[Rfam]
A member of the RNA family "transfer-messenger RNA" from Halorhodospira halochloris, 359 nucleotides long. Lineage of the source: Bacteria > Pseudomonadati > Gammaproteobacteria > Ectothiorhodospiraceae > Halorhodospira. A reference for the family is Zwieb et al. (2003), "tmRDB (tmRNA database)", Nucleic Acids Res. Rfam links the family to the GO term RNA catabolic process.
RNA sequence: GGGGGCGACAUGGCUUCGACGCGGGUCGCGAAACCCGAGGUGCAUGCCGAGGUGACAGUCUACCUCGUAAAACAGGCUGUAAGCUUAAAAUAGUUGCCAACGACGACAACUACGCUCUAGCGGCGUAACACCCGCUAGCUGCUCACGGUCGGUGCCUGUGCCGGUCGCCGAGCAGUCAUAGACACAGGCUAGUGCCAGGGGAUAGGUCCGGUCCUCUGGUGCGAACCCCAAACGGGCUCGCUAUCGGGACGCCCUGCCGGUCGGGCACCCGGUAGUUAAACAGAAUAGAUCCGGCUAAGCAUGUAGAUCCGAGGGCGUAGCUCCUGCGGACGCGGGUUCGAUUCCCGCCGCCUCCACCA
Dot-bracket structure: (((((((............((((((........(((..((..((((([[[[[..((((((..]]]]].......))))))....................................(((((((........)))))))((((((.(((((((([[[[[[))))))))..))))))........]]]]]]..(((((((((....[[[[[[...)))))))))..........]]]]]].(((((((((...(((.[[[[.[.)))..)))))))))...........]...]]]]...))))).....))..))).......))))))...(((((.......))))))))))))....

It is annotated as a non-coding RNA gene.